[Rfam]
RNA: Bacterial small signal recognition particle RNA
Organism: Stieleria bergensis
RNA sequence: GGUGGCGACUCUUGCGAUUGUGAAUCGUGAACCUGGUCAGGACUUAACUGGAGCAGCCAUAAGCGGUGUAGCUCUGUGUGAGAGUCGCCUCCGAG
Numbered sequence: 001g002g003u004g005g006c007g008a009c010u011c012u013u014g015c016g017a018u019u020g021u022g023a024a025u026c027g028u029g030a031a032c033c034u035g036g037u038c039a040g041g042a043c044u045u046a047a048c049u050g051g052a053g054c055a056g057c058c059a060u061a062a063g064c065g066g067u068g069u070a071g072c073u074c075u076g077u078g079u080g081a082g083a084g085u086c087g088c089c090u091c092c093g094a095g
Stems, first nucleotide, its partner, number of pairs: 004089011015076001017075001020072002024067005034059004043050001